[Rfam]
The family of this 130-nucleotide RNA from Oryctolagus cuniculus is "Small nucleolar RNA SNORA30/SNORA37 family". It scores 98 bits against the family's covariance model. Pairs were carried over by alignment from the consensus structure, which was predicted with RNAfold. The family has 11 seed sequences and 407 matches in Rfam 15.1. On this family, see Huttenhofer et al., EMBO J 2001: "RNomics: an experimental approach that identifies 201 candidates for novel, small, non-messenger RNAs in mouse". The members of this family belong to the H/ACA class of snoRNAs that guide the sites of modification of uridines to pseudouridines. This family includes human ACA30 (SNORA30), ACA37 (SNORA37) and the mouse homolog MBI-26. Both ACA37 and ACA30 are predicted to guide the pseudouridylation of residue U4643 of 28S rRNA. The source organism's lineage runs through Eukaryota, Vertebrata, Theria, Euarchontoglires and Oryctolagus.
RNA sequence: CUAGCACUUUUCACUAGUCCUUCCGUAGGCAGUGGGACCAGGAUUUGGUAGCUGGUCCUGAAAGAAAAUCCUUGAUUGUAUCUUUGCCUUGGGACUGUACUAGUGGCAGUUGACAUUCAAUGGGAUAGAG
Numbered sequence: 001c002u003a004g005c006a007c008u009u010u011u012c013a014c015u016a017g018u019c020c021u022u023c024c025g026u027a028g029g030c031a032g033u034g035g036g037a038c039c040a041g042g043a044u045u046u047g048g049u050a051g052c053u054g055g056u057c058c059u060g061a062a063a064g065a066a067a068a069u070c071c072u073u074g075a076u077u078g079u080a081u082c083u084u085u086g087c088c089u090u091g092g093g094a095c096u097g098u099a100c101u102a103g104u105g106g107c108a109g110u111u112g113a114c115a116u117u118c119a120a121u122g123g124g125a126u127a128g129a130g
Base pairs, nucleotide, nucleotide: 003059004058006056007055008054014047016045018043019042020041021040024036026034069124070123071122072120073119074118075117077115078114081112084109085108086107087106088105089103090102091101092100